[Rfam]
RNA: mir-726 microRNA precursor family
Organism: Mauremys mutica
RNA sequence: UGGGGCGUUCACCAGGAAUUCCGCUAGUUCUGAACUAUUGACACUUGAAAAAAGUUCACUACUAGCAGAACUCGGGUGCGCGCCCCC
Dot-bracket structure: ..((((((.((.(.((..(((.((((((..((((((.((...........))))))))..)))))).))).)).).)).))))))..
Numbered sequence: 001u002g003g004g005g006c007g008u009u010c011a012c013c014a015g016g017a018a019u020u021c022c023g024c025u026a027g028u029u030c031u032g033a034a035c036u037a038u039u040g041a042c043a044c045u046u047g048a049a050a051a052a053a054g055u056u057c058a059c060u061a062c063u064a065g066c067a068g069a070a071c072u073c074g075g076g077u078g079c080g081c082g083c084c085c086c087c
Stems, first nucleotide, its partner, number of pairs: 003085006010078002013075001015073002019070003023066006031058006038052002